[Rfam]
RNA: mir-393 microRNA precursor family
Organism: Zea mays
RNA sequence: AGUGGAAAAUUCCAAAGGGAUUGCACUGAUCUUGUCGUCGACUCGCAUCGCAUGCAGCAGGCGGCAGGUGAGAAUAGAUCAAUGCGAUCCCUUUGGAGUCCUCCAC
Numbered sequence: 001a002g003u004g005g006a007a008a009a010u011u012c013c014a015a016a017g018g019g020a021u022u023g024c025a026c027u028g029a030u031c032u033u034g035u036c037g038u039c040g041a042c043u044c045g046c047a048u049c050g051c052a053u054g055c056a057g058c059a060g061g062c063g064g065c066a067g068g069u070g071a072g073a074a075u076a077g078a079u080c081a082a083u084g085c086g087a088u089c090c091c092u093u094u095g096g097a098g099u100c101c102u103c104c105a106c
Stems, first nucleotide, its partner, number of pairs: 002106005009099013023085003028080005